[Rfam]
RNA sequence: GGUUGCAACAUCCCCGUGGAUUGGGUGACGGUUUGUAACGGGCCGUCAUAGCGAAUUCACUGCAACU
Numbered sequence: 001g002g003u004u005g006c007a008a009c010a011u012c013c014c015c016g017u018g019g020a021u022u023g024g025g026u027g028a029c030g031g032u033u034u035g036u037a038a039c040g041g042g043c044c045g046u047c048a049u050a051g052c053g054a055a056u057u058c059a060c061u062g063c064a065a066c067u
Stems, first nucleotide, its partner, number of pairs: 001067007013053001014051001016060007023052001025049011
Background:
nadA riboswitch: a 67-nucleotide RNA sequence.